[Rfam]
RNA sequence: AAUAAGAUUUGUUAGGUGAGGCUCCUAUACAAACAUAGGCUACUGCCCAAAAACGUCGAGAGACGCCAAUGGGUAGAACAGGAAUUGUCGAGAUAAGGCUUUUCAUAAGGUAGCUAAAAGCAGGUAUCUGCUUUUUACGUUGUACAGUGUCAAAACUCAACGAUGAGAUCUGAGA
Numbered sequence: 001a002a003u004a005a006g007a008u009u010u011g012u013u014a015g016g017u018g019a020g021g022c023u024c025c026u027a028u029a030c031a032a033a034c035a036u037a038g039g040c041u042a043c044u045g046c047c048c049a050a051a052a053a054c055g056u057c058g059a060g061a062g063a064c065g066c067c068a069a070u071g072g073g074u075a076g077a078a079c080a081g082g083a084a085u086u087g088u089c090g091a092g093a094u095a096a097g098g099c100u101u102u103u104c105a106u107a108a109g110g111u112a113g114c115u116a117a118a119a120g121c122a123g124g125u126a127u128c129u130g131c132u133u134u135u136u137a138c139g140u141u142g143u144a145c146a147g148u149g150u151c152a153a154a155a156c157u158c159a160a161c162g163a164u165g166a167g168a169u170c171u172g173a174g175a
Stems, first nucleotide, its partner, number of pairs: 005171006011161002013096001015157003020151003025147002028144005039114005045074005054065004082104003087099003116135006
The record is a 175-nucleotide sequence from Enterococcus faecium, which matches "M-box riboswitch aptamer (ykoK leader)" in Rfam. For this family Rfam cites "New RNA motifs suggest an expanded scope for riboswitches in bacterial genetic control" (Barrick et al., Proc Natl Acad Sci U S A, 2004). The sequence is in the family's curated seed alignment. The organism belongs to Enterococcus faecium, within Bacteria.